[Rfam]
RNA sequence: UGAGUUUUCCAUGCUUGUCUUUCGGGGCCACAAAACGAGUUCCUGGUAACUCCACUGCUAAUGCCCUGGGCGAAAGUCCCCGGGCCUAGGAUAGAAAGUAUCAAGGCGUAAAAAGUGCACCCGUAGUUGCAUUCGCCUAUAUUCUGCGGAAAUCCGCCUGGCUGGUGAUGAAGAGAGGGUUUUCUCCGGGAUCCCCACGAAUCUUUUCGGUCAGGUUGUCUGCGGAAAUCUGCCAGAGUUAACUUUAGAUAUGGACGAGUUGGUAGGACUGUCGGAACGUAAAACACUUCGAGAGAAACCGCCAACACGGAAUGGGGCUUACUUUGGGAAAUUC
Numbered sequence: 001u002g003a004g005u006u007u008u009c010c011a012u013g014c015u016u017g018u019c020u021u022u023c024g025g026g027g028c029c030a031c032a033a034a035a036c037g038a039g040u041u042c043c044u045g046g047u048a049a050c051u052c053c054a055c056u057g058c059u060a061a062u063g064c065c066c067u068g069g070g071c072g073a074a075a076g077u078c079c080c081c082g083g084g085c086c087u088a089g090g091a092u093a094g095a096a097a098g099u100a101u102c103a104a105g106g107c108g109u110a111a112a113a114a115g116u117g118c119a120c121c122c123g124u125a126g127u128u129g130c131a132u133u134c135g136c137c138u139a140u141a142u143u144c145u146g147c148g149g150a151a152a153u154c155c156g157c158c159u160g161g162c163u164g165g166u167g168a169u170g171a172a173g174a175g176a177g178g179g180u181u182u183u184c185u186c187c188g189g190g191a192u193c194c195c196c197a198c199g200a201a202u203c204u205u206u207u208c209g210g211u212c213a214g215g216u217u218g219u220c221u222g223c224g225g226a227a228a229u230c231u232g233c234c235a236g237a238g239u240u241a242a243c244u245u246u247a248g249a250u251a252u253g254g255a256c257g258a259g260u261u262g263g264u265a266g267g268a269c270u271g272u273c274g275g276a277a278c279g280u281a282a283a284a285c286a287c288u289u290c291g292a293g294a295g296a297a298a299c300c301g302c303c304a305a306c307a308c309g310g311a312a313u314g315g316g317g318c319u320u321a322c323u324u325u326g327g328g329a330a331a332u333u334c
Base pairs, nucleotide, nucleotide: 002334003333004332005331006330007329008328009327010326011325014253016251017250018249019248022069023068024067025066026065027064028063037052038051039050040049041048074320075319076318078317079316080315081314090102091101092100093099133149134148135147136146151219157215158214159213160212161211162210163209164208165207167203168202169201257302259300

Record summary: Rfam assigns this 334-nucleotide RNA from Drosophila gunungcola to the family "RNase MRP". The literature on the family includes a 1993 paper in FASEB J by Schmitt et al., "Secondary structure of RNase MRP RNA as predicted by phylogenetic comparison". Rfam's curators write: RNase MRP is an enzymatically active ribonucleoprotein with two distinct roles in eukaryotes. In mitochondria it plays a direct role in the initiation of mitochondrial DNA replication.